Small nucleolar RNA snR86: a 77-nucleotide part of an RNA from Saccharomyces uvarum.
On this family, see Torchet et al., RNA 2005: "The complete set of H/ACA snoRNAs that guide rRNA pseudouridylations in Saccharomyces cerevisiae".
Lineage of the source: Eukaryota > Opisthokonta > saccharomyceta > Saccharomycetales > Saccharomyces uvarum.
The base pairs follow the family's consensus structure, which was predicted with WAR.

RNA sequence: UAGAAAUAAAUAUCCCGUCUAAUCGCUCAUCUAUUAAAAUUAAUAGUAGAAUGCAGUUUCAUAUCCGGGAGAAAUUC
Number, nucleotide and partner (000 for none) at each position: 001u000002a000003g000004a000005a000006a000007u000008a000009a000010a000011u000012a000013u070014c069015c068016c067017g066018u000019c000020u063021a062022a000023u000024c000025g057026c056027u055028c053029a052030u051031c049032u048033a047034u046035u045036a044037a000038a000039a000040u000041u000042a000043a000044u036045a035046g034047u033048a032049g031050a000051a030052u029053g028054c000055a027056g026057u025058u000059u000060c000061a000062u021063a020064u000065c000066c017067g016068g015069g014070a013071g000072a000073a000074a000075u000076u000077c000